[Rfam]
RNA sequence: UGCCGGCUCUCCAAAGGCCGGGGUCACUGAAGAGGCACUACAUCCUUGCCGGGCGCGUGGAAGGGUCUCCCUCCCAGGCGAAGGCAGCGAAGCAGGGACGCCGAUGCGUCCUGCUGGCGACUGUCCACCCGCGAACCAAACCGCCGG
Numbered sequence: 001u002g003c004c005g006g007c008u009c010u011c012c013a014a015a016g017g018c019c020g021g022g023g024u025c026a027c028u029g030a031a032g033a034g035g036c037a038c039u040a041c042a043u044c045c046u047u048g049c050c051g052g053g054c055g056c057g058u059g060g061a062a063g064g065g066u067c068u069c070c071c072u073c074c075c076a077g078g079c080g081a082a083g084g085c086a087g088c089g090a091a092g093c094a095g096g097g098a099c100g101c102c103g104a105u106g107c108g109u110c111c112u113g114c115u116g117g118c119g120a121c122u123g124u125c126c127a128c129c130c131g132c133g134a135a136c137c138a139a140a141c142c143g144c145c146g147g
Stems, first nucleotide, its partner, number of pairs: 001023001003021006034050004057128003078088002096111005